[Rfam]
RNA sequence: UGGCUGUGAUGAUAUUUGCGCCACCGCAUACGGUUGGGUCCGUUGCUUUCACUGAUCUUCAGAUGUAAAAUGCGGCGCUGCUGAGCCA
Number, nucleotide and partner (000 for none) at each position: 001u088002g087003g086004c085005u000006g000007u000008g000009a000010u000011g000012a000013u000014a000015u000016u000017u000018g000019c000020g000021c000022c000023a000024c000025c000026g000027c000028a000029u000030a000031c000032g000033g000034u000035u000036g000037g000038g000039u000040c000041c000042g000043u000044u000045g000046c000047u000048u000049u000050c000051a000052c000053u000054g000055a000056u000057c000058u000059u000060c000061a000062g000063a000064u000065g000066u000067a000068a000069a000070a000071u000072g000073c000074g000075g000076c000077g000078c000079u000080g000081c000082u000083g000084a000085g004086c003087c002088a001
RNA: small nucleolar RNA snoR114